[Rfam]
RNA sequence: GCAAAACCCAAACUCCUAGCUCUGCUGCCUAAGUUUCCCGAUACGGUGAAAUAUGGCGCCAGAGCCGUGGCAAAAGCCACCAGGGUGUAUGGCAGAAAUGCCCGCAUCUCCCGAUAUUGGAAAGGUGUUUACGGUGCCCCAGC
Numbered sequence: 001g002c003a004a005a006a007c008c009c010a011a012a013c014u015c016c017u018a019g020c021u022c023u024g025c026u027g028c029c030u031a032a033g034u035u036u037c038c039c040g041a042u043a044c045g046g047u048g049a050a051a052u053a054u055g056g057c058g059c060c061a062g063a064g065c066c067g068u069g070g071c072a073a074a075a076g077c078c079a080c081c082a083g084g085g086u087g088u089a090u091g092g093c094a095g096a097a098a099u100g101c102c103c104g105c106a107u108c109u110c111c112c113g114a115u116a117u118u119g120g121a122a123a124g125g126u127g128u129u130u131a132c133g134g135u136g137c138c139c140c141a142g143c
Base pairs, nucleotide, nucleotide: 011129012128013127015125016124019065020064021063022062023061024060026058027057028056029055033052034051035050036049067080068079069078070077071076083109084108085107086106087105088104091102092101093100094099110120111119
RNA: Molybdenum/Tungsten riboswitch aptamer (Moco RNA motif)
Organism: Enterobacillus tribolii